[Rfam]
Nucleotides: 379
Stems, first nucleotide, its partner, number of pairs: 004379003007375001008319007016037006042373003046370005051237005056074004061070002080232005085106006107122001108120005123227002126167004134158004141152003173225002175221003190209008241256003260290007291304005321358005328353004
Number, partner (000 for none) and nucleotide at each position: 001000u002000g003000a004379c005378c006377u007375g008319a009318g010317u011316a012315a013314u014313c015000g016037c017036u018035g019034c020033g021032u022000c023000g024000c025000u026000u027000u028000g029000a030000c031000g032021g033020c034019g035018u036017a037016g038000a039000g040000g041000a042373a043372a044371g045000u046370c047369c048368a049367u050366g051237c052236u053235c054234a055233c056074a057073c058072a059071g060000u061070g062069c063000u064000g065000c066000g067000a068000u069062g070061c071059c072058u073057g074056u075000a076000g077000u078000g079000u080232u081231c082230g083229u084228g085106c086105a087104u088103a089102c090101u091000g092000a093000a094000a095000a096000a097000a098000u099000a100000a101090g102089g103088u104087a105086u106085g107122g108120c109119a110118g111117u112116u113000a114000g115000u116112a117111g118110c119109u120108g121000a122107c123227g124226g125000c126167g127166g128165a129164a130000g131000u132000a133000a134158u135157a136156c137155c138000u139000a140000a141152g142151c143150c144000u145000u146000u147000c148000g149000a150143g151142g152141u153000a154000u155137g156136g157135u158134a159000g160000a161000c162000g163000c164129u165128u166127c167126c168000u169000u170000a171000a172000g173225g174224u175221g176220c177219c178000a179000c180000a181000g182000a183000g184000a185000c186000g187000a188000a189000g190209c191208u192207u193206u194205g195204c196203g197202a198000g199000a200000a201000a202197u203196c204195g205194u206193a207192a208191a209190g210000g211000u212000g213000g214000a215000a216000c217000g218000a219177g220176g221175u222000a223000a224174a225173c226124c227123c228084c229083g230082c231081g232080a233055g234054u235053g236052a237051g238000a239000a240000a241256c242255c243254c244000a245000a246000a247000u248000u249000u250000g251000g252000u253000a254243g255242g256241g257000g258000c259000a260290c261289u262288c263287u264286c265285u266284a267000g268000a269000a270000g271000g272000a273000a274000c275000u276000g277000a278000a279000c280000g281000g282000a283000a284266u285265a286264g287263a288262g289261g290260g291304a292303c293302g294301g295300a296000g297000c298000a299000a300295u301294c302293c303292g304291u305000a306000g307000a308000c309000a310000g311000a312000u313014g314013a315012u316011u317010a318009c319008u320000a321358c322357u323356c324355a325354g326000u327000c328353g329352u330351a331350c332000g333000a334000g335000g336000c337000u338000a339000a340000c341000g342000c343000c344000g345000c346000u347000u348000g349000a350331g351330u352329a353328c354325u355324u356323g357322a358321g359000g360000a361000c362000a363000a364000a365000a366050c367049a368048u369047g370046g371044c372043u373042u374000a375007c376000a377006g378005g379004g

The family of this 379-nucleotide RNA sequence from Lysinibacillus sp. BF-4 is "Bacterial RNase P class B". Taxonomically the source falls in Lysinibacillus (Bacteria, Bacillota, Bacilli, Caryophanales). The family's RNA type in Rfam is ribozyme.